RNA sequence: UGGACAAAUUAUUAUAUUUGAAUGUAUUCGCGGCGUGAAACAGGGGAUUACAUUGUUUUUAAAUUGAAAGUGAAUCAAUUCACAUAAUAGACUCCU
Numbered sequence: 001u002g003g004a005c006a007a008a009u010u011a012u013u014a015u016a017u018u019u020g021a022a023u024g025u026a027u028u029c030g031c032g033g034c035g036u037g038a039a040a041c042a043g044g045g046g047a048u049u050a051c052a053u054u055g056u057u058u059u060u061a062a063a064u065u066g067a068a069a070g071u072g073a074a075u076c077a078a079u080u081c082a083c084a085u086a087a088u089a090g091a092c093u094c095c096u
Base pairs, nucleotide, nucleotide: 002095003094004093009090010089011088012087013086014085015084017082020080021079023077024076026075027074028073029072030071031070035064036063037059038058039057040056041055042054043053
RNA: MIR6152 microRNA precursor family
Organism: Nicotiana attenuata